[Rfam]
RNA sequence: CAAGUAGCACAGAUGAUCGCGCCUAUUAAUGCCGAAAGGCUUUAGGUGAGGAAAGUCCGAGCUUCACAGGGCAGGAUGCCGGAUAACGUCCGGUGGAGGCGACUCCCAGGCUAGUGCAACAGAAAUAAACCGCACGUUUAUCGUGUAAGGGUGGAAAGGCGAGGUAAGAGCUCCCCGCAGUCUUGGUAACAAGGCUGGCUAUGUAAACCCCAUCCGAAGCAAGACCGAAUAGAAAAGCAUUGCGGCGACCCGUCGCGCUUUUGGGUAGGUCGCUUGAGCCUGGUGGUAACAUCAGGACCAGAUAGAUGAUCAUCUAAUACAGAACUCGGCUUAUAGUGCUGCUUGUUUU
Numbered sequence: 001c002a003a004g005u006a007g008c009a010c011a012g013a014u015g016a017u018c019g020c021g022c023c024u025a026u027u028a029a030u031g032c033c034g035a036a037a038g039g040c041u042u043u044a045g046g047u048g049a050g051g052a053a054a055g056u057c058c059g060a061g062c063u064u065c066a067c068a069g070g071g072c073a074g075g076a077u078g079c080c081g082g083a084u085a086a087c088g089u090c091c092g093g094u095g096g097a098g099g100c101g102a103c104u105c106c107c108a109g110g111c112u113a114g115u116g117c118a119a120c121a122g123a124a125a126u127a128a129a130c131c132g133c134a135c136g137u138u139u140a141u142c143g144u145g146u147a148a149g150g151g152u153g154g155a156a157a158g159g160c161g162a163g164g165u166a167a168g169a170g171c172u173c174c175c176c177g178c179a180g181u182c183u184u185g186g187u188a189a190c191a192a193g194g195c196u197g198g199c200u201a202u203g204u205a206a207a208c209c210c211c212a213u214c215c216g217a218a219g220c221a222a223g224a225c226c227g228a229a230u231a232g233a234a235a236a237g238c239a240u241u242g243c244g245g246c247g248a249c250c251c252g253u254c255g256c257g258c259u260u261u262u263g264g265g266u267a268g269g270u271c272g273c274u275u276g277a278g279c280c281u282g283g284u285g286g287u288a289a290c291a292u293c294a295g296g297a298c299c300a301g302a303u304a305g306a307u308g309a310u311c312a313u314c315u316a317a318u319a320c321a322g323a324a325c326u327c328g329g330c331u332u333a334u335a336g337u338g339c340u341g342c343u344u345g346u347u348u349u
Base pairs, nucleotide, nucleotide: 001345002344003343004342005341006340007339008338009337010336011334012314013313014312015311016310017309018308020048021047022046023045024044025043053332054331055330057329058328059327060326061325062219063218064217065216069251070250071249074215075214076213077212078211079093080092081091082090083089094108095106096105097104098103109210110209114208115207116204117203118202130150131149132146133145134144135143136142158176159175161173162172163171177199178197179196180195181194182193183192184191185190223271224270225269226268233262234261235260236259237258238257242256243255244254245253246252279296280295281294282293283292284291285290